[Rfam]
The record is a 107-nucleotide sequence from Tripterygium wilfordii, which matches "Small nucleolar RNA snoR109" in Rfam.

RNA sequence: UGGCUGUAGCUAAAUCGAAACAGGCCGAGAAGUUAACUGGCCGGUUGUUGUUUGAGAUUUCGAUGAAGUCUCUGUCGACAUAUCUGCUUACCGAACCUCUCACAUUU
Number, nucleotide and partner (000 for none) at each position: 001u000002g000003g000004c000005u000006g000007u000008a000009g000010c000011u000012a000013a000014a000015u000016c000017g000018a000019a000020a000021c000022a000023g000024g000025c000026c000027g101028a100029g099030a098031a000032g096033u095034u094035a000036a000037c000038u000039g088040g087041c086042c000043g084044g083045u082046u000047g079048u078049u077050g076051u000052u000053u000054g000055a000056g000057a000058u000059u000060u000061c000062g000063a000064u000065g000066a000067a000068g000069u000070c000071u000072c000073u000074g000075u000076c050077g049078a048079c047080a000081u000082a045083u044084c043085u000086g041087c040088u039089u000090a000091c000092c000093g000094a034095a033096c032097c000098u030099c029100u028101c027102a000103c000104a000105u000106u000107u000
Rfam 15.1 lists 680 matches to the family in 220 species.
Rfam classes the family as an H/ACA-box small nucleolar RNA.
Lineage of the source: Eukaryota > Euphyllophyta > Spermatophyta > Mesangiospermae > Tripterygium.
A search with the family's covariance model found it, with a score of 86 bits.
Its family is annotated with RNA processing and nucleolus in the Gene Ontology.